RNA sequence: CGGAAUGCGUGGGCCUGGUGGCCCGGCCGGUCUUCAAAACCGGUUUGCGGCCGCGGAGCGGCCGUGGGUGGUUCGAUUCCCCCGCAUUCCG
Number, nucleotide and partner (000 for none) at each position: 001c091002g090003g089004a088005a087006u086007g085008c084009g083010u025011g024012g023013g022014c021015c020016u000017g000018g000019u000020g015021g014022c013023c012024c011025g010026g045027c043028c042029g041030g040031u039032c000033u000034u000035c000036a000037a000038a000039a031040c030041c029042g028043g027044u000045u026046u000047g065048c064049g063050g062051c061052c000053g000054c000055g000056g000057a000058g000059c000060g000061g051062c050063c049064g048065u047066g000067g000068g082069u000070g080071g079072u000073u000074c000075g000076a000077u000078u000079c071080c070081c000082c068083c009084g008085c007086a006087u005088u004089c003090c002091g001